[Rfam]
RNA sequence: CAAGGAUUCGCGGGAGAGAUCGUCUCGGUCACACGAGAAGGCGCCGACGGAGCAACCGCCCCGGAAACUCUCAGGCAAAAGAACCGCACCCGAAUU
Numbered sequence: 001c002a003a004g005g006a007u008u009c010g011c012g013g014g015a016g017a018g019a020u021c022g023u024c025u026c027g028g029u030c031a032c033a034c035g036a037g038a039a040g041g042c043g044c045c046g047a048c049g050g051a052g053c054a055a056c057c058g059c060c061c062c063g064g065a066a067a068c069u070c071u072c073a074g075g076c077a078a079a080a081g082a083a084c085c086g087c088a089c090c091c092g093a094a095u096u
Stems, first nucleotide, its partner, number of pairs: 010087004020041002023038005043076003046072002050070003056064002

Rfam assigns this 96-nucleotide RNA sequence from Allobosea thiooxidans to the family "Glycine riboswitch aptamer". A search with the family's covariance model found it, with a score of 50 bits.